[Rfam]
RNA sequence: GAAGCUUCCAAUCUCCCUCAAAGGCUUCCAACAUACAUCCAUGACCGCUAUGGGAAUGGUGGAUGCCUUUGGGGGGAUUGAAGGCUU
Numbered sequence: 001g002a003a004g005c006u007u008c009c010a011a012u013c014u015c016c017c018u019c020a021a022a023g024g025c026u027u028c029c030a031a032c033a034u035a036c037a038u039c040c041a042u043g044a045c046c047g048c049u050a051u052g053g054g055a056a057u058g059g060u061g062g063a064u065g066c067c068u069u070u071g072g073g074g075g076g077a078u079u080g081a082a083g084g085c086u087u
Stems, first nucleotide, its partner, number of pairs: 003086004009080005015075005021069005027063004032058002
The family of this 87-nucleotide RNA from Ricinus communis is "MIR477 microRNA precursor family". Rfam links the family to the GO terms RISC complex and miRNA-mediated post-transcriptional gene silencing. The sequence is in the family's curated seed alignment. The literature on the family includes a 2005 paper in Plant Cell by Lu et al., "Novel and mechanical stress-responsive MicroRNAs in Populus trichocarpa that are absent from Arabidopsis".